The record is a 171-nucleotide RNA from Thomasclavelia spiroformis, which matches "Group II catalytic intron D1-D4-3" in Rfam.
RNA sequence: UUGAUAGUGAUGUCAUGGGUGAAGGAAGUGGUGUAGCGAUUCUUUCGAGCGUACGAACAGAAACUUGAUGAGGCUAAAUGGUGGAUAAGGUUGCGCAACAAACUAAAGUCCAAAAGGUAAACGUAGAACCAAGACAGUAAAUCAAGACGUUGUGAAAGAAAUAGGAUUCAU
Numbered sequence: 001u002u003g004a005u006a007g008u009g010a011u012g013u014c015a016u017g018g019g020u021g022a023a024g025g026a027a028g029u030g031g032u033g034u035a036g037c038g039a040u041u042c043u044u045u046c047g048a049g050c051g052u053a054c055g056a057a058c059a060g061a062a063a064c065u066u067g068a069u070g071a072g073g074c075u076a077a078a079u080g081g082u083g084g085a086u087a088a089g090g091u092u093g094c095g096c097a098a099c100a101a102a103c104u105a106a107a108g109u110c111c112a113a114a115a116g117g118u119a120a121a122c123g124u125a126g127a128a129c130c131a132a133g134a135c136a137g138u139a140a141a142u143c144a145a146g147a148c149g150u151u152g153u154g155a156a157a158g159a160a161a162u163a164g165g166a167u168u169c170a171u
Stems, first nucleotide, its partner, number of pairs: 002015005028171004042158006048151005064146005073138003079131004083111004089104004
Group II introns are found in rRNA, tRNA and mRNA of organelles in fungi, plants and protists, and also in mRNA in bacteria.